[Rfam]
This 208-nucleotide RNA from Rhodococcus sp. Leaf258 belongs to the Rfam family "Actinobacteria sRNA Ms_IGR-5". A reference for the family is Li et al. (2013), "Identification of small RNAs in Mycobacterium smegmatis using heterologous Hfq", RNA. It is annotated as a small RNA.

RNA sequence: ACACGAGAGAGGAGGUGGUCUGGAAUUGUAUGACUCUUGGACGCGUGAGGUGGCUGCCCGCUAGCCGCAACCGCUGACGGUUCUUCUCUCACCGCGCGAGCGGCGGGCGAAUACCAGGCAGCUACCCGACCCCCGAGCCCUCGGUCCGUCCAGACCGAGACCCGUACUCCUGCAACGGUGUACCGGUAGGGCUCGGGGGUCGUCCCAU
Numbered sequence: 001a002c003a004c005g006a007g008a009g010a011g012g013a014g015g016u017g018g019u020c021u022g023g024a025a026u027u028g029u030a031u032g033a034c035u036c037u038u039g040g041a042c043g044c045g046u047g048a049g050g051u052g053g054c055u056g057c058c059c060g061c062u063a064g065c066c067g068c069a070a071c072c073g074c075u076g077a078c079g080g081u082u083c084u085u086c087u088c089u090c091a092c093c094g095c096g097c098g099a100g101c102g103g104c105g106g107g108c109g110a111a112u113a114c115c116a117g118g119c120a121g122c123u124a125c126c127c128g129a130c131c132c133c134c135g136a137g138c139c140c141u142c143g144g145u146c147c148g149u150c151c152a153g154a155c156c157g158a159g160a161c162c163c164g165u166a167c168u169c170c171u172g173c174a175a176c177g178g179u180g181u182a183c184c185g186g187u188a189g190g191g192c193u194c195g196g197g198g199g200u201c202g203u204c205c206c207a208u
Stems, first nucleotide, its partner, number of pairs: 014058006059109004064104002067101002072096003127202013140159006